About this RNA
Rfam assigns this 129-nucleotide RNA from Clostridium magnum to the family "c-di-AMP riboswitch aptamer (ydaO/yuaA leader)".
[Rfam]
RNA sequence: CAAUACCAUUAGCCUAAGUUUUUUAUAAAACGCGGGGAAACCAAAGAUUUUGGGGUGAAUCGUAUUUUACGUAGGUUUUGCCUUUACCGAACCCGUCAGCUAACCCCGUUGGUAAUAAGGAGAGGAUUA
Numbered sequence: 001c002a003a004u005a006c007c008a009u010u011a012g013c014c015u016a017a018g019u020u021u022u023u024u025a026u027a028a029a030a031c032g033c034g035g036g037g038a039a040a041c042c043a044a045a046g047a048u049u050u051u052g053g054g055g056u057g058a059a060u061c062g063u064a065u066u067u068u069a070c071g072u073a074g075g076u077u078u079u080g081c082c083u084u085u086a087c088c089g090a091a092c093c094c095g096u097c098a099g100c101u102a103a104c105c106c107c108g109u110u111g112g113u114a115a116u117a118a119g120g121a122g123a124g125g126a127u128u129a
Base pairs, nucleotide, nucleotide: 012113013112014111018031019030020029032109033108034107035106036105037104042052043051053094054093055092061071062070063069064068074088075087076086